[Rfam]
RNA sequence: GCCAAGGUGGCAGAGUUCGGCCCAACGCAUCCGCCUGCAGAGCGGAACCCCCGCCGGUUCAAAUCCGGCCCUUGGCU
Numbered sequence: 001g002c003c004a005a006g007g008u009g010g011c012a013g014a015g016u017u018c019g020g021c022c023c024a025a026c027g028c029a030u031c032c033g034c035c036u037g038c039a040g041a042g043c044g045g046a047a048c049c050c051c052c053g054c055c056g057g058u059u060c061a062a063a064u065c066c067g068g069c070c071c072u073u074g075g076c077u
Stems, first nucleotide, its partner, number of pairs: 001076007010028002030046005053069005
The family of this 77-nucleotide RNA from Haloferax volcanii is "tRNA". Rfam's curators write: Transfer RNA (tRNA) molecules are approximately 80 nucleotides in length. By type it is a transfer RNA. The family's consensus secondary structure is taken from published work. Its family is annotated with triplet codon-amino acid adaptor activity in the Gene Ontology.